[Rfam]
RNA sequence: ACAAGGAGAAGUUCAACUAAGGUCGCCACUUCCUGUGGCAACGUCGAACCACCCCACGUCCUGUGGG
Numbered sequence: 001a002c003a004a005g006g007a008g009a010a011g012u013u014c015a016a017c018u019a020a021g022g023u024c025g026c027c028a029c030u031u032c033c034u035g036u037g038g039c040a041a042c043g044u045c046g047a048a049c050c051a052c053c054c055c056a057c058g059u060c061c062u063g064u065g066g067g
Stems, first nucleotide, its partner, number of pairs: 011049004016044002025039005053067005

Shown here is a 67-nucleotide RNA sequence from Oceanobacillus zhaokaii, a member of the family "Bacillaceae-1 RNA". The family's RNA type in Rfam is small RNA. The source organism's lineage runs through Bacteria, Bacillati, Caryophanales, Bacillaceae and Oceanobacillus.